Notes:
A member of the RNA family "6S / SsrS RNA" from Alcaligenaceae bacterium 429, 187 nucleotides long. NCBI's taxonomy places the organism under Bacteria, Pseudomonadati, Betaproteobacteria, Burkholderiales, Alcaligenaceae. On this family, see Wassarman and Storz, Cell 2000: "6S RNA regulates E. coli RNA polymerase activity". The family's RNA type in Rfam is non-coding RNA gene.

RNA sequence: AAGUCCCUGCCGUGUUCGUGACGUGGCUAUAUAUUCCUUGAACCAAUGCUUAUGGCAUUCAGGUCGCUGGAUUUAUAAGCAGGAGCGAUCGCUACAAGAUAGCGAACCCGAAACUUAUAUGAUGGCGGCCAAUCUUUGGACCCUCGGUUCCCAGGAUGCCAGCCUUGACGGCACAGGUGGGGCAAUU
Numbered sequence: 001a002a003g004u005c006c007c008u009g010c011c012g013u014g015u016u017c018g019u020g021a022c023g024u025g026g027c028u029a030u031a032u033a034u035u036c037c038u039u040g041a042a043c044c045a046a047u048g049c050u051u052a053u054g055g056c057a058u059u060c061a062g063g064u065c066g067c068u069g070g071a072u073u074u075a076u077a078a079g080c081a082g083g084a085g086c087g088a089u090c091g092c093u094a095c096a097a098g099a100u101a102g103c104g105a106a107c108c109c110g111a112a113a114c115u116u117a118u119a120u121g122a123u124g125g126c127g128g129c130c131a132a133u134c135u136u137u138g139g140a141c142c143c144u145c146g147g148u149u150c151c152c153a154g155g156a157u158g159c160c161a162g163c164c165u166u167g168a169c170g171g172c173a174c175a176g177g178u179g180g181g182g183c184a185a186u187u
Base pairs, nucleotide, nucleotide: 005182006181007180008179009178010177011176012174013173014172015171017170018169019168035156036155037154038153040150041149042148043147044146062130063129064128066126067125068124069123074119075118076117077116078115079114085108090104091103092102093101094100

The match comes from Rfam's covariance-model search (60 bits).